[Rfam]
RNA sequence: AUUCGUAUAAAGAUGAGUAGUUAAUGAUUUGUUUAUCAGAGAUGUACUGGUUGGUGAAAAGUACAACAAACAUUAGUGAACGCUACUUUAUGCACAACUGUAUAGUCGAUUUAAAGUGAUAAAUGUGUUGAAUUGCAUUUAUAACUAGGGUGGUACCGCGAUAACGUUCGUCCCUUUU
Numbered sequence: 001a002u003u004c005g006u007a008u009a010a011a012g013a014u015g016a017g018u019a020g021u022u023a024a025u026g027a028u029u030u031g032u033u034u035a036u037c038a039g040a041g042a043u044g045u046a047c048u049g050g051u052u053g054g055u056g057a058a059a060a061g062u063a064c065a066a067c068a069a070a071c072a073u074u075a076g077u078g079a080a081c082g083c084u085a086c087u088u089u090a091u092g093c094a095c096a097a098c099u100g101u102a103u104a105g106u107c108g109a110u111u112u113a114a115a116g117u118g119a120u121a122a123a124u125g126u127g128u129u130g131a132a133u134u135g136c137a138u139u140u141a142u143a144a145c146u147a148g149g150g151u152g153g154u155a156c157c158g159c160g161a162u163a164a165c166g167u168u169c170g171u172c173c174c175u176u177u178u
Stems, first nucleotide, its partner, number of pairs: 007091006020077006032068001034066001043065006119142009147175004158171004
RNA: T-box leader